[Rfam]
RNA sequence: UACUUAUCCAGAAAGACGGAGGGAAAGGCCCGAUGAUGUCUUAGCAACCUGUACCGACAAGGUGCUAAUUCCUGCCUGUUUACAGGCGCAGAUAAGAA
Numbered sequence: 001u002a003c004u005u006a007u008c009c010a011g012a013a014a015g016a017c018g019g020a021g022g023g024a025a026a027g028g029c030c031c032g033a034u035g036a037u038g039u040c041u042u043a044g045c046a047a048c049c050u051g052u053a054c055c056g057a058c059a060a061g062g063u064g065c066u067a068a069u070u071c072c073u074g075c076c077u078g079u080u081u082a083c084a085g086g087c088g089c090a091g092a093u094a095a096g097a098a
Base pairs, nucleotide, nucleotide: 001098003096004095005094006093007092008091013042014041015040016039017038021031022030023029026073027072028071043066044065045064046063048062049061050059051058052057070090075086076085077084078083